This 116-nucleotide sequence from Psychroflexus salarius belongs to the Rfam family "6S-Flavo RNA". The base pairs follow the family's consensus structure, which is taken from published work. The organism belongs to Psychroflexus, within Bacteria. The match comes from Rfam's covariance-model search (91 bits).
RNA sequence: ACUCAACACUUAUAAUUUAAAAAGGGUUAAGUUUUGGUUGUAAAAGCAAGCUGCCACGUUUUGUGAAGCAGAUCCUUGAUCAGUCAGACAGCCCUAAACCUGUUUUAACGGAGUUU
Dot-bracket structure: ......................(((((.......(((((....(((....((((.............))))...)))....)))))....))))).....................